[Rfam]
Background:
A member of the RNA family "Plastid-rps12 3UTR RNA" from Musa balbisiana, 95 nucleotides long. The family's consensus secondary structure was predicted with LocARNA. NCBI's taxonomy places the organism under Eukaryota, Spermatophyta, Mesangiospermae, commelinids, Musa. A reference for the family is Richter et al. (2023), "Retrograde signaling in plants: A critical review focusing on the GUN pathway and beyond", Plant Commun. The family's RNA type in Rfam is cis-regulatory element.

RNA sequence: AUGUUCCAUUGGUGCAAAUCCAAUCACCUAGAUUUGAGAUGAAAAGCAAUUCCCCAUUGGUAGCAAAUAGUUACCAUUAGCGAGGAAAUUAGUAA
Numbered sequence: 001a002u003g004u005u006c007c008a009u010u011g012g013u014g015c016a017a018a019u020c021c022a023a024u025c026a027c028c029u030a031g032a033u034u035u036g037a038g039a040u041g042a043a044a045a046g047c048a049a050u051u052c053c054c055c056a057u058u059g060g061u062a063g064c065a066a067a068u069a070g071u072u073a074c075c076a077u078u079a080g081c082g083a084g085g086a087a088a089u090u091a092g093u094a095a
Stems, first nucleotide, its partner, number of pairs: 009023004052085002055082001056077002059075006